[Rfam]
RNA: SAM riboswitch aptamer (S box leader)
RNA sequence: GUUCCAUCCAGAGCGGCCGAGAGACCCGGCUUGAUGACGCCGCAGCAACCCCCUCGUGGUGGGUGCUUCUGCCGGGACCGAUGGAGA
Numbered sequence: 001g002u003u004c005c006a007u008c009c010a011g012a013g014c015g016g017c018c019g020a021g022a023g024a025c026c027c028g029g030c031u032u033g034a035u036g037a038c039g040c041c042g043c044a045g046c047a048a049c050c051c052c053c054u055c056g057u058g059g060u061g062g063g064u065g066c067u068u069c070u071g072c073c074g075g076g077a078c079c080g081a082u083g084g085a086g087a
Stems, first nucleotide, its partner, number of pairs: 002086007013043005021032003026075004044067004049063002051059002071079001